[Rfam]
Guanidine-I riboswitch aptamer: a 97-nucleotide RNA from Bacillus sp. J14TS2. Taxonomically the source falls in Bacillus (Bacteria, Bacillota, Caryophanales, Bacillaceae).
RNA sequence: UAAAAUGUUUUCUAGGGUUCCGCAAUAUUUAUUAUUGGUCUGGUCCGAGAGAAAACUCACGCUCGGCGUGUCACGGAAGGAUAAAAGCCUGGGAGAA
Numbered sequence: 001u002a003a004a005a006u007g008u009u010u011u012c013u014a015g016g017g018u019u020c021c022g023c024a025a026u027a028u029u030u031a032u033u034a035u036u037g038g039u040c041u042g043g044u045c046c047g048a049g050a051g052a053a054a055a056c057u058c059a060c061g062c063u064c065g066g067c068g069u070g071u072c073a074c075g076g077a078a079g080g081a082u083a084a085a086a087g088c089c090u091g092g093g094a095g096a097a
Stems, first nucleotide, its partner, number of pairs: 007056006015046002020043002022040001023037005058070005072092001074095001078090003